[Rfam]
RNA sequence: GCUUAAAAUAUUGAUGUUGUAGGGGAAGGUUUUUAUAAUAACCUUUUCCAACUUGGGCUAUUUGAGGGAAUAAAAAAGACCACACUCCACAGUGGGCUACAUCACUAAAUAUAUAGUCCACUACUAUUUUGUGGCCUAUGUG
Numbered sequence: 001g002c003u004u005a006a007a008a009u010a011u012u013g014a015u016g017u018u019g020u021a022g023g024g025g026a027a028g029g030u031u032u033u034u035a036u037a038a039u040a041a042c043c044u045u046u047u048c049c050a051a052c053u054u055g056g057g058c059u060a061u062u063u064g065a066g067g068g069a070a071u072a073a074a075a076a077a078g079a080c081c082a083c084a085c086u087c088c089a090c091a092g093u094g095g096g097c098u099a100c101a102u103c104a105c106u107a108a109a110u111a112u113a114u115a116g117u118c119c120a121c122u123a124c125u126a127u128u129u130u131g132u133g134g135c136c137u138a139u140g141u142g
Stems, first nucleotide, its partner, number of pairs: 004065001006063003012060002015057001017055001021053002024049004028043004077137002080134005091122009101112002
Dot-bracket structure: ...(.(((...((.(.(...((.((((((((........))))..))))..)).).).))))).)...........((.(((((......(((((((((.((........)).))))))))).......))))).)).....
Annotation
Rfam assigns this 142-nucleotide RNA sequence from Pipistrellus kuhlii to the family "Small nucleolar RNA SNORA4". The family's consensus secondary structure was predicted with PFOLD. Rfam describes the family as follows. ACA4 is a member of the H/ACA class of snoRNA that guide the sites of modification of uridines to pseudouridines. By type it is an H/ACA-box small nucleolar RNA. Its Rfam clan is "SNORA4 clan". The match comes from Rfam's covariance-model search (115 bits). Taxonomically the source falls in Pipistrellus (Eukaryota, Eumetazoa, Craniata, Euteleostomi).